RNA sequence: AGAAUGCCAAGAGCAGAGCCAGAUUCUGACAUCUUGUAUGACAGCUGCAUCCGCAGCCUGAUUCUAGCUCUGGACUGAGGCUU
Dot-bracket structure: ((.........................................(((((....))))).......................)).
The record is an 83-nucleotide RNA sequence from Ornithorhynchus anatinus, which matches "Small nucleolar RNA SNORD60" in Rfam.
The base pairs follow the family's consensus structure, which was predicted with PFOLD.
It scores 57 bits against the family's covariance model.
Taxonomically the source falls in Ornithorhynchus (Eukaryota, Eumetazoa, Teleostomi, Amniota).
Its Rfam clan is "SNORD60 clan".
A reference for the family is Galardi et al. (2002), "Purified box C/D snoRNPs are able to reproduce site-specific 2'-O-methylation of target RNA in vitro", Mol Cell Biol.
Rfam classes the family as a C/D-box small nucleolar RNA.